[Rfam]
RNA sequence: GGCUGCAACAACCCCGUGGAUGGGGAAGCCCAGGCUGAUCGGCCGAGUCGCCGAUCCCGCUUGGCGCUUCAGCGCAUCCACUGCAGCC
Numbered sequence: 001g002g003c004u005g006c007a008a009c010a011a012c013c014c015c016g017u018g019g020a021u022g023g024g025g026a027a028g029c030c031c032a033g034g035c036u037g038a039u040c041g042g043c044c045g046a047g048u049c050g051c052c053g054a055u056c057c058c059g060c061u062u063g064g065c066g067c068u069u070c071a072g073c074g075c076a077u078c079c080a081c082u083g084c085a086g087c088c
Stems, first nucleotide, its partner, number of pairs: 001088007013074001014072001016081007023073001025070005030064006
This 88-nucleotide RNA belongs to the Rfam family "nadA riboswitch". A reference for the family is Huang et al. (2020), "Structure and ligand binding of the ADP-binding domain of the NAD(+) riboswitch", RNA. It is one of the family's seed sequences. The family's RNA type in Rfam is small RNA.